[Rfam]
RNA sequence: UUGCCCACCCUGGACUAAUAAAUUGUCCUUGGUGUCUAACACAGGGGGGUAGAUUAGCUCUCUCAUAAACCUGUAGUGAAGGCACAAAUCCUCGCUGCGGAUCCUGUCGGGAGAAACAACC
Number, nucleotide and partner (000 for none) at each position: 001u000002u051003g050004c049005c048006c047007a000008c045009c044010c000011u000012g000013g000014a000015c000016u038017a037018a000019u000020a000021a000022a000023u000024u000025g000026u000027c000028c000029u000030u000031g000032g000033u000034g000035u000036c000037u017038a016039a000040c000041a000042c000043a000044g009045g008046g000047g006048g005049g004050u003051a002052g000053a000054u000055u000056a000057g000058c000059u000060c113061u112062c111063u110064c109065a000066u000067a000068a000069a000070c000071c100072u099073g098074u097075a096076g095077u094078g000079a092080a000081g091082g000083c000084a089085c000086a000087a000088a000089u084090c000091c081092u079093c000094g077095c076096u075097g074098c073099g072100g071101a000102u000103c000104c000105u000106g000107u000108c000109g064110g063111g062112a061113g060114a000115a000116a000117c000118a000119a000120c000121c000

Shown here is a 121-nucleotide sequence from Stegastes partitus, a member of the family "Small nucleolar RNA SNORA26". A reference for the family is Huttenhofer et al. (2001), "RNomics: an experimental approach that identifies 201 candidates for novel, small, non-messenger RNAs in mouse", EMBO J. NCBI's taxonomy places the organism under Eukaryota, Opisthokonta, Percomorphaceae, Ovalentaria, Stegastes. It scores 55 bits against the family's covariance model. Rfam classes the family as an H/ACA-box small nucleolar RNA. The snoRNA HBI-6 belong to the H/ACA family of snoRNAs, guiding the pseudouridylation of position U4522 if the 28S rRNA. HBI-6 is the human orthologue of mouse MBI-6 snoRNA.